[Rfam]
RNA sequence: UUGACUGUCCAUGACGUUAAAACACUAAAUUCCUGGGAUGUGUUUUAAUUGAUUUUAGUCUC
Numbered sequence: 001u002u003g004a005c006u007g008u009c010c011a012u013g014a015c016g017u018u019a020a021a022a023c024a025c026u027a028a029a030u031u032c033c034u035g036g037g038a039u040g041u042g043u044u045u046u047a048a049u050u051g052a053u054u055u056u057a058g059u060c061u062c
Stems, first nucleotide, its partner, number of pairs: 003060003016049010031038002
RNA: Selenocysteine insertion sequence 1